[Rfam]
RNA sequence: GAGCAUGUUCCCAAGGUCCGUGGCUUGUGUGGCCAUCUGAUCUCCAACUGCACGCAAGAGCAACUUGGGGAGACUGUGACAGCUCAGGUCAGCAAAGGCUCUGCAGCUGCUACUCACCUUCCCUAUAAAA
Numbered sequence: 001g002a003g004c005a006u007g008u009u010c011c012c013a014a015g016g017u018c019c020g021u022g023g024c025u026u027g028u029g030u031g032g033c034c035a036u037c038u039g040a041u042c043u044c045c046a047a048c049u050g051c052a053c054g055c056a057a058g059a060g061c062a063a064c065u066u067g068g069g070g071a072g073a074c075u076g077u078g079a080c081a082g083c084u085c086a087g088g089u090c091a092g093c094a095a096a097g098g099c100u101c102u103g104c105a106g107c108u109g110c111u112a113c114u115c116a117c118c119u120u121c122c123c124u125a126u127a128a129a130a
Base pairs, nucleotide, nucleotide: 016034018032019031020030021029022028067123068122069121070120071119072118082110083109085103086102087101088100
This 130-nucleotide RNA from Echinops telfairi belongs to the Rfam family "Small nucleolar RNA SNORA44". The organism belongs to Echinops, within Eukaryota. The family's RNA type in Rfam is H/ACA-box small nucleolar RNA. ACA44 is a member of the H/ACA class of snoRNA that guide the sites of modification of uridines to pseudouridines.